[Rfam]
Small nucleolar RNA snR43: a 185-nucleotide RNA from Pichia kudriavzevii. The family's consensus secondary structure is taken from published work. Its Rfam clan is "SNORA9 clan".

RNA sequence: CACUCCUGUUUCUGCCUGCUACUCUCUCUCCGCCAUAGGGUUUGCAGUCUUGUUUUGGAGGAGAUCAAGCUGGGGGUUGGCUGUCUGAUUUGAUACUUCACGACUCACCCUUCCCCCAGUUCGUUUCCCAACCUCAUAGCCGUCACGAAAUUUCAUGAAUGUCGGCACUUGUUGUGAAUACACCU
Numbered sequence: 001c002a003c004u005c006c007u008g009u010u011u012c013u014g015c016c017u018g019c020u021a022c023u024c025u026c027u028c029u030c031c032g033c034c035a036u037a038g039g040g041u042u043u044g045c046a047g048u049c050u051u052g053u054u055u056u057g058g059a060g061g062a063g064a065u066c067a068a069g070c071u072g073g074g075g076g077u078u079g080g081c082u083g084u085c086u087g088a089u090u091u092g093a094u095a096c097u098u099c100a101c102g103a104c105u106c107a108c109c110c111u112u113c114c115c116c117c118a119g120u121u122c123g124u125u126u127c128c129c130a131a132c133c134u135c136a137u138a139g140c141c142g143u144c145a146c147g148a149a150a151u152u153u154c155a156u157g158a159a160u161g162u163c164g165g166c167a168c169u170u171g172u173u174g175u176g177a178a179u180a181c182a183c184c185u
Stems, first nucleotide, its partner, number of pairs: 003060004016047004021041005070119007079110001080108001083104003125178003129174004139166004146161001152159002